Rfam assigns this 37-nucleotide sequence from Chitinophaga niabensis to the family "DUF805b RNA". The match comes from Rfam's covariance-model search (42 bits). By type it is a cis-regulatory element. Taxonomically the source falls in Chitinophaga (Bacteria, Pseudomonadati, Bacteroidota, Chitinophagaceae).
RNA sequence: ACAGGGGUCUCCGAAAACCUGCAUAACAGAGUAGGAA
Numbered sequence: 001a002c003a004g005g006g007g008u009c010u011c012c013g014a015a016a017a018c019c020u021g022c023a024u025a026a027c028a029g030a031g032u033a034g035g036a037a
Stems, first nucleotide, its partner, number of pairs: 002021004010036003
Dot-bracket structure: .((((....[[[.....))))............]]].